[Rfam]
RNA sequence: CCGUGCUAGAUGGGGAGGUAGCGGUGCCCUGUAACCCGCAAUCCGCUACAGCGGGGUUGAAUUCCUAUUAGAGGUCUUGUCGAUGUAAGGUCUGGACGCACGUACGUAGUGUUGACAGUCGGGUCCUCCGCAAUGGAAGCUUGUGAACCCGGUCAGGUCCGGAAGGAAGCAGCCGUAAGCAGGAUGUUUCAUGUGCCGGAGGGUAGCCCGACUCGAGCUAACGGCGGGUGUUCCGCUUGGAUCGCACGAUCGAUAAUAGGUGCACGG
Numbered sequence: 001c002c003g004u005g006c007u008a009g010a011u012g013g014g015g016a017g018g019u020a021g022c023g024g025u026g027c028c029c030u031g032u033a034a035c036c037c038g039c040a041a042u043c044c045g046c047u048a049c050a051g052c053g054g055g056g057u058u059g060a061a062u063u064c065c066u067a068u069u070a071g072a073g074g075u076c077u078u079g080u081c082g083a084u085g086u087a088a089g090g091u092c093u094g095g096a097c098g099c100a101c102g103u104a105c106g107u108a109g110u111g112u113u114g115a116c117a118g119u120c121g122g123g124u125c126c127u128c129c130g131c132a133a134u135g136g137a138a139g140c141u142u143g144u145g146a147a148c149c150c151g152g153u154c155a156g157g158u159c160c161g162g163a164a165g166g167a168a169g170c171a172g173c174c175g176u177a178a179g180c181a182g183g184a185u186g187u188u189u190c191a192u193g194u195g196c197c198g199g200a201g202g203g204u205a206g207c208c209c210g211a212c213u214c215g216a217g218c219u220a221a222c223g224g225c226g227g228g229u230g231u232u233c234c235g236c237u238u239g240g241a242u243c244g245c246a247c248g249a250u251c252g253a254u255a256a257u258a259g260g261u262g263c264a265c266g267g
Stems, first nucleotide, its partner, number of pairs: 001267006009058003012030004017025001019023001035055005064260007073251004081244004086239004094231001098229002101226003106222002108219003117213008125202006131193002134191005140183005150175004158167003
The family of this 267-nucleotide sequence from Paenibacillus sp. J31TS4 is "Bacterial large signal recognition particle RNA". The source organism's lineage runs through Bacteria, Bacillota, Bacilli, Paenibacillaceae and Paenibacillus. By type it is a non-coding RNA gene.